[Rfam]
Nucleotides: 172
Base pairs, nucleotide, nucleotide: 006042007041008040009039010038011037012036015034016033017032018031062075063074065072066159067158068157069156070155071154076100077099078098079097080096081095082094083093085092086091103123104122105121107120108119109118110117111116126152127151128150129149130148131147132146133145135144136143137142
Number, partner (000 for none) and nucleotide at each position: 001000u002000a003000u004000a005000c006042g007041g008040c009039u010038u011037c012036g013000c014000c015034a016033g017032c018031u019000c020000u021000c022000c023000a024000u025000g026000a027000u028000a029000u030000c031018a032017g033016c034015u035000u036012c037011g038010g039009a040008g041007c042006c043000a044000g045000a046000u047000c048000a049000a050000a051000a052000a053000g054000g055000a056000g057000g058000a059000a060000u061000a062075c063074c064000a065072c066159a067158g068157g069156c070155c071154u072065g073000c074063g075062g076100u077099g078098c079097g080096g081095c082094a083093g084000u085092g086091u087000g088000g089000a090000g091086a092085c093083c094082u095081g096080c097079c098078g099077u100076a101000a102000g103123c104122c105121g106000u107120g108119u109118u110117g111116u112000u113000u114000u115000g116111a117110c118109a119108a120107c121105c122104g123103g124000g125000a126152g127151a128150a129149a130148g131147c132146g133145u134000a135144u136143g137142c138000g139000g140000a141000g142137g143136c144135a145133g146132c147131g148130c149129u150128u151127u152126c153000a154071g155070g156069g157068u158067c159066u160000u161000a162000u163000u164000g165000c166000c167000a168000u169000g170000g171000c172000a
This 172-nucleotide RNA belongs to the Rfam family "malK-I RNA". It is annotated as a cis-regulatory element. It is one of the family's seed sequences.